A member of the RNA family "MIR2617 microRNA precursor family" from Medicago truncatula, 84 nucleotides long. Lineage of the source: Eukaryota > Embryophyta > Euphyllophyta > Trifolieae > Medicago. Its family is annotated with RISC complex and miRNA-mediated post-transcriptional gene silencing in the Gene Ontology.
RNA sequence: AGGUAGUGUAGCAUGCCUGUUUGAUGAAUUACUCUGAUGAAUCUUUUAUAUUUAAUUGUUUUGGGAUAACGGGGUGUUACCACC
Numbered sequence: 001a002g003g004u005a006g007u008g009u010a011g012c013a014u015g016c017c018u019g020u021u022u023g024a025u026g027a028a029u030u031a032c033u034c035u036g037a038u039g040a041a042u043c044u045u046u047u048a049u050a051u052u053u054a055a056u057u058g059u060u061u062u063g064g065g066a067u068a069a070c071g072g073g074g075u076g077u078u079a080c081c082a083c084c
Stems, first nucleotide, its partner, number of pairs: 006083002008080007016073006